[Rfam]
RNA sequence: AAGGCCGCUGAGGGCAAGAUGGCGGCGGUCCCGAGCGCCGCCUCUUCCGCCCUGCUGGGCGUCGCA
Numbered sequence: 001a002a003g004g005c006c007g008c009u010g011a012g013g014g015c016a017a018g019a020u021g022g023c024g025g026c027g028g029u030c031c032c033g034a035g036c037g038c039c040g041c042c043u044c045u046u047c048c049g050c051c052c053u054g055c056u057g058g059g060c061g062u063c064g065c066a
Stems, first nucleotide, its partner, number of pairs: 003063003006059001008057001010055001012052004018047002021044002024042005030035001